[Rfam]
RNA sequence: GCCAGGCAAGAUGUUGGCAUAGCUGAGUUUUUUGCACCUCAGCUCUGCCGCAUGUAGCCACGUC
Numbered sequence: 001g002c003c004a005g006g007c008a009a010g011a012u013g014u015u016g017g018c019a020u021a022g023c024u025g026a027g028u029u030u031u032u033u034g035c036a037c038c039u040c041a042g043c044u045c046u047g048c049c050g051c052a053u054g055u056a057g058c059c060a061c062g063u064c
Stems, first nucleotide, its partner, number of pairs: 005059003011053004016049003022043005